The family of this 142-nucleotide sequence is "mir-395 microRNA precursor family".

RNA sequence: UUGUCCACUGGAGUUCUCCUCAAUCCACUUCAGUAGAUAGCUAUGGCUAGGCCUCAUUGCAUUGCACUGUUACAUAACUGUGAUCAUGGGGCCAAAAGCUAGCUAUGUAUAGUGAAGUGCUUGGGGGAACUCCAGUUGACAC
Numbered sequence: 001u002u003g004u005c006c007a008c009u010g011g012a013g014u015u016c017u018c019c020u021c022a023a024u025c026c027a028c029u030u031c032a033g034u035a036g037a038u039a040g041c042u043a044u045g046g047c048u049a050g051g052c053c054u055c056a057u058u059g060c061a062u063u064g065c066a067c068u069g070u071u072a073c074a075u076a077a078c079u080g081u082g083a084u085c086a087u088g089g090g091g092c093c094a095a096a097a098g099c100u101a102g103c104u105a106u107g108u109a110u111a112g113u114g115a116a117g118u119g120c121u122u123g124g125g126g127g128a129a130c131u132c133c134a135g136u137u138g139a140c141a142c
Stems, first nucleotide, its partner, number of pairs: 005138001007136003011132010022122002026119007034111002037108003
About the family: mir-395 was identified in both Arabidopsis thaliana and Oryza sativa computationally and was later experimentally verified. mir-395 is thought to target mRNAs coding for ATP sulphurylases. The mature sequence is excised from the 3' arm of the hairpin.